About this RNA:
A member of the RNA family "ZMP/ZTP riboswitch aptamer (pfl RNA motif)" from Paenibacillus arenilitoris, 80 nucleotides long. The organism belongs to Paenibacillus, within Bacteria.

RNA sequence: AAAGCUGCGCGUGACUGGCGGAACAUGGGGAACCAUGAGGGAGCGCGCGGAUAUAAGAGCCGUACGCCUGGGCGAAGGUA
Number, nucleotide and partner (000 for none) at each position: 001a000002a000003a052004g000005c050006u049007g048008c047009g046010c045011g044012u043013g000014a000015c040016u039017g068018g067019c066020g065021g000022a000023a000024c000025a036026u035027g034028g033029g000030g000031a000032a000033c028034c027035a026036u025037g000038a000039g016040g015041g000042a000043g012044c011045g010046c009047g008048c007049g006050g005051a000052u003053a000054u000055a000056a000057g000058a000059g073060c072061c071062g000063u000064a000065c020066g019067c018068c017069u000070g000071g061072g060073c059074g000075a000076a000077g000078g000079u000080a000
A search with the family's covariance model found it, with a score of 60 bits. A reference for the family is Ren et al. (2015), "Global RNA Fold and Molecular Recognition for a pfl Riboswitch Bound to ZMP, a Master Regulator of One-Carbon Metabolism", Structure.